Shown here is a 104-nucleotide RNA sequence from Bifidobacterium choloepi, a member of the family "TPP riboswitch aptamer (THI element)".
Pairs were carried over by alignment from the consensus structure, which is taken from published work.
Taxonomically the source falls in Bifidobacterium (Bacteria, Bacillati, Actinomycetes, Bifidobacteriales).
About the family: Vitamin B(1) in its active form thiamin pyrophosphate (TPP) is an essential coenzyme that is synthesised by coupling of pyrimidine and thiazole moieties in bacteria.

RNA sequence: GGGAAACUGCAGGGGAGCUUGCGAGCCAAGCUGAGAUCGGCAGUCGCCGGGACCCUUCGAACCUGUUGGCUAACACCAGUGUAGGGAGCACUCAUGGGCACCAC
Numbered sequence: 001g002g003g004a005a006a007c008u009g010c011a012g013g014g015g016a017g018c019u020u021g022c023g024a025g026c027c028a029a030g031c032u033g034a035g036a037u038c039g040g041c042a043g044u045c046g047c048c049g050g051g052a053c054c055c056u057u058c059g060a061a062c063c064u065g066u067u068g069g070c071u072a073a074c075a076c077c078a079g080u081g082u083a084g085g086g087a088g089c090a091c092u093c094a095u096g097g098g099c100a101c102c103a104c
Stems, first nucleotide, its partner, number of pairs: 006092001008090003011056004017031005038049004062085004066079004